[Rfam]
RNA sequence: AUUGGCGUCUUACCAGACAUGGUUAGAUCUGAUUAUUGUGUCUAAUACUGUCUGGUAAUGCCGUCCAU
Numbered sequence: 001a002u003u004g005g006c007g008u009c010u011u012a013c014c015a016g017a018c019a020u021g022g023u024u025a026g027a028u029c030u031g032a033u034u035a036u037u038g039u040g041u042c043u044a045a046u047a048c049u050g051u052c053u054g055g056u057a058a059u060g061c062c063g064u065c066c067a068u
Base pairs, nucleotide, nucleotide: 002067004065005064006063007062009060010058011057012056013055014054015053016052017051018050019049022046023045024044025043026042027041
Dot-bracket structure: .(.((((.(((((((((((..((((((.............))))))..)))))))))).).)))).).